[Rfam]
RNA: Bacterial small signal recognition particle RNA
RNA sequence: UAUUAAGAGGUGCAAUAAGUACAUAGGAACCUGGUCAGGGUAGGAAUACAGCAGCCAUAACUAUCAAUGCUUAUGUGCACUUUUUUUAUGGAGUUU
Number, nucleotide and partner (000 for none) at each position: 001u000002a000003u000004u088005a087006a086007g083008a082009g081010g080011u079012g078013c075014a000015a074016u073017a072018a071019g070020u069021a000022c000023a064024u063025a062026g061027g000028a000029a000030c000031c000032u057033g056034g055035u054036c000037a000038g000039g000040g049041u048042a047043g000044g000045a000046a000047u042048a041049c040050a000051g000052c000053a000054g035055c034056c033057a032058u000059a000060a000061c026062u025063a024064u023065c000066a000067a000068u000069g020070c019071u018072u017073a016074u015075g013076u000077g000078c012079a011080c010081u009082u008083u007084u000085u000086u006087u005088a004089u000090g000091g000092a000093g000094u000095u000096u000